[Rfam]
RNA sequence: CGUGAUAAAGGCAAACCCGGCGAAAGCCGGUGACGCAAAGCCACCGGCCUAAGGUGCCCCUGUAGGGGGUGCGAUGGCAGCGGGGCUACCGCAG
Numbered sequence: 001c002g003u004g005a006u007a008a009a010g011g012c013a014a015a016c017c018c019g020g021c022g023a024a025a026g027c028c029g030g031u032g033a034c035g036c037a038a039a040g041c042c043a044c045c046g047g048c049c050u051a052a053g054g055u056g057c058c059c060c061u062g063u064a065g066g067g068g069g070u071g072c073g074a075u076g077g078c079a080g081c082g083g084g085g086c087u088a089c090c091g092c093a094g
Base pairs, nucleotide, nucleotide: 001094003091004090011036012035017030018029019028020027021026034080039087040086041085042084044083045082046081047078048077049076